[Rfam]
RNA sequence: AUUGGAUUAUGAUGAAAGAAGGAGUUGGUGAUUAUCAAACAUUGGUUUGAUAUGAUCCUUAUUAAAUCUCUCCUUUUUUUUCGCUACGUUCUUUCUGAAUCCUAA
Numbered sequence: 001a002u003u004g005g006a007u008u009a010u011g012a013u014g015a016a017a018g019a020a021g022g023a024g025u026u027g028g029u030g031a032u033u034a035u036c037a038a039a040c041a042u043u044g045g046u047u048u049g050a051u052a053u054g055a056u057c058c059u060u061a062u063u064a065a066a067u068c069u070c071u072c073c074u075u076u077u078u079u080u081u082c083g084c085u086a087c088g089u090u091c092u093u094u095c096u097g098a099a100u101c102c103u104a105a
Stems, first nucleotide, its partner, number of pairs: 004102004

About this RNA: A member of the RNA family "Small nucleolar RNA R32/R81/Z41" from Aquilegia coerulea, 105 nucleotides long. By type it is a C/D-box small nucleolar RNA.